RNA sequence: GUUAUGAUGCUUUAAAAUUUUCUGACAUCUCUAAUGAACUGUUGUGAUUCCAAGUAUUUCUUUAUAAUUAACUGAUAAU
Dot-bracket structure: (((..............................((((....))))...............................)))